[Rfam]
Streptomyces sRNA 4677: a 210-nucleotide RNA sequence from Streptomyces calvus. The match comes from Rfam's covariance-model search (154 bits). By type it is a small RNA. About the family: Located in the intergenic region between anti-sigma factor SCO4677 gene and a putative regulatory protein gene SCO4676. scr4677 expression requires the SCO4677 activity and scr4677 sRNA itself seem to affect the levels of the SCO4676-associated transcripts. Lineage of the source: Bacteria > Bacillati > Actinomycetota > Kitasatosporales > Streptomyces. Pairs were carried over by alignment from the consensus structure.
RNA sequence: GGCUCCGGUGCCUCGGCGCCUUCCCGAGCAGGCCCUGACCGCCCGAGGCCCGCGAUCACUCGGGCGGGUGAACAUCACCGGCUCCGCAGGAUCCGCGCGCCCUCGACUCGCCUACGCUCAGCGCACCUCACUCCCCCAAAGACGUCGGCCCUCGCCGGGACUGCAAUCCCGGUGCGAGGGCCUGACCACCAAGGAAGCAGCACCUUCCCG
Number, nucleotide and partner (000 for none) at each position: 001g000002g000003c000004u000005c000006c000007g190008g189009u188010g187011c000012c000013u000014c000015g043016g042017c041018g040019c000020c000021u000022u000023c000024c000025c000026g000027a000028g000029c000030a000031g000032g000033c000034c000035c000036u000037g000038a000039c000040c018041g017042c016043c015044c000045g000046a000047g000048g000049c000050c000051c000052g000053c000054g000055a000056u071057c070058a069059c068060u067061c066062g000063g000064g000065c000066g061067g060068g059069u058070g057071a056072a000073c000074a000075u000076c000077a000078c000079c000080g000081g000082c000083u000084c000085c000086g122087c121088a000089g119090g118091a000092u000093c000094c000095g000096c000097g000098c000099g000100c000101c000102c000103u000104c000105g000106a000107c000108u000109c000110g000111c000112c000113u000114a000115c000116g000117c000118u090119c089120a000121g087122c086123g000124c000125a000126c000127c000128u000129c000130a000131c000132u000133c000134c000135c000136c000137c000138a000139a000140a000141g000142a000143c000144g000145u000146c000147g182148g181149c180150c179151c178152u000153c176154g175155c174156c000157g170158g169159g168160a167161c000162u000163g000164c000165a000166a000167u160168c159169c158170c157171g000172g000173u000174g155175c154176g153177a000178g151179g150180g149181c148182c147183u000184g000185a000186c000187c010188a009189c008190c007191a000192a000193g208194g207195a206196a205197g204198c000199a000200g000201c000202a000203c000204c197205u196206u195207c194208c193209c000210g000